Shown here is a 107-nucleotide RNA sequence from Staphylococcus carnosus, a member of the family "SAM riboswitch aptamer (S box leader)". The literature on the family includes a 1998 paper in Mol Microbiol by Grundy and Henkin, "The S box regulon: a new global transcription termination control system for methionine and cysteine biosynthesis genes in gram-positive bacteria". Rfam describes the family as follows. The SAM riboswitch is found upstream of a number of genes which code for proteins involved in methionine or cysteine biosynthesis in Gram-positive bacteria. The sequence is in the family's curated seed alignment. The base pairs follow the family's consensus structure, which is taken from published work.
RNA sequence: CUCUUAUCAAGAGAGGUGGAGGGAUGUGCCCUGCGAAACCCGGCAACCGUCUUUAUAUAGAAAUGGUGCCAAUUCACAAAAAGUUGAACUGCUUUUGAAGAUGAGAG
Numbered sequence: 001c002u003c004u005u006a007u008c009a010a011g012a013g014a015g016g017u018g019g020a021g022g023g024a025u026g027u028g029c030c031c032u033g034c035g036a037a038a039c040c041c042g043g044c045a046a047c048c049g050u051c052u053u054u055a056u057a058u059a060g061a062a063a064u065g066g067u068g069c070c071a072a073u074u075c076a077c078a079a080a081a082a083g084u085u086g087a088a089c090u091g092c093u094u095u096u097g098a099a100g101a102u103g104a105g106a107g
Stems, first nucleotide, its partner, number of pairs: 001107008013041001015040003021031003025078004042070004047066002050061003074099001079096006